Rfam assigns this 146-nucleotide sequence from Pontibacillus yanchengensis to the family "FMN riboswitch aptamer (RFN element)". Lineage of the source: Bacteria > Bacillati > Bacillota > Pontibacillus > Pontibacillus yanchengensis. A search with the family's covariance model found it, with a score of 110 bits.
[Rfam]
RNA sequence: UGUUUCCUUCGGGGUAGGGUGCAAUUCCCAACCGGCGGUGAUCAAGUGAAUACUUGUAAGCCCGCGACCUGCAGAGUAUGUACUUUGUGGCUGAUUUGGUGCGAGACCAGAGCCGACGGUAAGAGUCCGGAUGGGAGAAGGAAUAG
Numbered sequence: 001u002g003u004u005u006c007c008u009u010c011g012g013g014g015u016a017g018g019g020u021g022c023a024a025u026u027c028c029c030a031a032c033c034g035g036c037g038g039u040g041a042u043c044a045a046g047u048g049a050a051u052a053c054u055u056g057u058a059a060g061c062c063c064g065c066g067a068c069c070u071g072c073a074g075a076g077u078a079u080g081u082a083c084u085u086u087g088u089g090g091c092u093g094a095u096u097u098g099g100u101g102c103g104a105g106a107c108c109a110g111a112g113c114c115g116a117c118g119g120u121a122a123g124a125g126u127c128c129g130g131a132u133g134g135g136a137g138a139a140g141g142a143a144u145a146g
Base pairs, nucleotide, nucleotide: 004143005142006141007140008139009138010137017029018028019027031126032125033115034114035065036064037063038062060113061112069090070089095111096110097109098108099107117129118128119127